RNA sequence: CAUCUCUGGCUCCAGUGCAUUUAAUCGAGAAAAUCUUUCGCCUUUUACUAAAGAUUUCCGUGCACCGGAGCAAUUAUGAGUAUUGGAUAAUUUUUGGAGUCCCCUCGAAAGAGCGGGAU
Numbered sequence: 001c002a003u004c005u006c007u008g009g010c011u012c013c014a015g016u017g018c019a020u021u022u023a024a025u026c027g028a029g030a031a032a033a034u035c036u037u038u039c040g041c042c043u044u045u046u047a048c049u050a051a052a053g054a055u056u057u058c059c060g061u062g063c064a065c066c067g068g069a070g071c072a073a074u075u076a077u078g079a080g081u082a083u084u085g086g087a088u089a090a091u092u093u094u095u096g097g098a099g100u101c102c103c104c105u106c107g108a109a110a111g112a113g114c115g116g117g118a119u
Stems, first nucleotide, its partner, number of pairs: 004080003009071005015065005031057008098119001100118004105113001
RNA: U5 spliceosomal RNA